[Rfam]
RNA sequence: UUGCAUGUUUAAUUAAGGAAACUAAAGAAAUUUUAUACAUCCAGAACAUGCUACAUUACACGAGGAGUUCUCAGGGCUGUCAACCUUACAGUAGAGGUUGAGUGGUAGUAUAUUUCUCCUACACAA
Numbered sequence: 001u002u003g004c005a006u007g008u009u010u011a012a013u014u015a016a017g018g019a020a021a022c023u024a025a026a027g028a029a030a031u032u033u034u035a036u037a038c039a040u041c042c043a044g045a046a047c048a049u050g051c052u053a054c055a056u057u058a059c060a061c062g063a064g065g066a067g068u069u070c071u072c073a074g075g076g077c078u079g080u081c082a083a084c085c086u087u088a089c090a091g092u093a094g095a096g097g098u099u100g101a102g103u104g105g106u107a108g109u110a111u112a113u114u115u116c117u118c119c120u121a122c123a124c125a126a
Stems, first nucleotide, its partner, number of pairs: 003051008064119004076106002080102001081100007

The family of this 126-nucleotide sequence from Peromyscus maniculatus is "Small nucleolar RNA U109". A reference for the family is Gu et al. (2005), "A novel experimental approach for systematic identification of box H/ACA snoRNAs from eukaryotes", Nucleic Acids Res. Rfam 15.1 lists 1,405 matches to the family in 622 species. Its family is annotated with RNA processing and nucleolus in the Gene Ontology. The organism belongs to Peromyscus maniculatus, within Eukaryota. The family's RNA type in Rfam is H/ACA-box small nucleolar RNA. It scores 110 bits against the family's covariance model.